Shown here is a 73-nucleotide RNA from Corticibacter populi, a member of the family "Xanthine riboswitch aptamer (NMT1 RNA)". Pairs were carried over by alignment from the consensus structure, which is taken from published work.
[Rfam]
RNA sequence: GGCAAGAGUAGAAGCGUUCAGUCGGCCGUUAUCCCUUGCUCCUGAGGUGCGGCGGCGGGUCAUUGCUCUUGAA
Numbered sequence: 001g002g003c004a005a006g007a008g009u010a011g012a013a014g015c016g017u018u019c020a021g022u023c024g025g026c027c028g029u030u031a032u033c034c035c036u037u038g039c040u041c042c043u044g045a046g047g048u049g050c051g052g053c054g055g056c057g058g059g060u061c062a063u064u065g066c067u068c069u070u071g072a073a
Stems, first nucleotide, its partner, number of pairs: 005069006015058001019059001021056004026051001